[Rfam]
Nucleotides: 066
Stems, first nucleotide, its partner, number of pairs: 014039005022030002042065010
Number, partner (000 for none) and nucleotide at each position: 001000g002000a003000c004000c005000u006000u007000g008000a009000g010000c011000g012000u013000c014039c015038a016037g017036c018035c019000c020000a021000a022030g023029c024000g025000u026000c027000a028000a029023g030022c031000a032000g033000a034000a035018g036017g037016c038015u039014g040000a041000u042065g043064g044063c045062u046061g047060g048059u049058g050057g051056c052000u053000u054000a055000u056051g057050c058049c059048a060047c061046c062045g063044g064043c065042c066000u